The record is a 64-nucleotide RNA sequence from Pinibacter aurantiacus, which matches "DUF805 RNA" in Rfam.
The family's consensus secondary structure is taken from published work.
Taxonomically the source falls in Pinibacter (Bacteria, Bacteroidota, Chitinophagia, Chitinophagaceae).
[Rfam]
RNA sequence: AUACAGUGGAGCAGCAACACUUUAAAAACGGGCGGAACCGAAAAGCCACACGAGUAGGAGCUAA
Numbered sequence: 001a002u003a004c005a006g007u008g009g010a011g012c013a014g015c016a017a018c019a020c021u022u023u024a025a026a027a028a029c030g031g032g033c034g035g036a037a038c039c040g041a042a043a044a045g046c047c048a049c050a051c052g053a054g055u056a057g058g059a060g061c062u063a064a
Base pairs, nucleotide, nucleotide: 006020007019008018031047032046033045038058039057